The record is a 151-nucleotide RNA from Tenacibaculum todarodis, which matches "Flavo-1 RNA" in Rfam. The source organism's lineage runs through Bacteria, Pseudomonadati, Flavobacteriia, Flavobacteriales and Tenacibaculum.

[Rfam]
RNA sequence: CUAUCGCCUGGGUUAGGGAUUGACGUGGAAAUCCUUUUUUUUAAUAAACUUAUCUCUGUACCUCUUAUUAAAAUAAAAUAUCUUAUGAAUUUAGUAGAUGCUGAAAUAAAUUCAGCAUAAAAAAAGAUUGGAGCAUAAAGCCCGACCGCGC
Numbered sequence: 001c002u003a004u005c006g007c008c009u010g011g012g013u014u015a016g017g018g019a020u021u022g023a024c025g026u027g028g029a030a031a032u033c034c035u036u037u038u039u040u041u042u043a044a045u046a047a048a049c050u051u052a053u054c055u056c057u058g059u060a061c062c063u064c065u066u067a068u069u070a071a072a073a074u075a076a077a078a079u080a081u082c083u084u085a086u087g088a089a090u091u092u093a094g095u096a097g098a099u100g101c102u103g104a105a106a107u108a109a110a111u112u113c114a115g116c117a118u119a120a121a122a123a124a125a126g127a128u129u130g131g132a133g134c135a136u137a138a139a140g141c142c143c144g145a146c147c148g149c150g151c
Stems, first nucleotide, its partner, number of pairs: 016143003020139002025134002030129004036124006
Overview: By type it is a small RNA.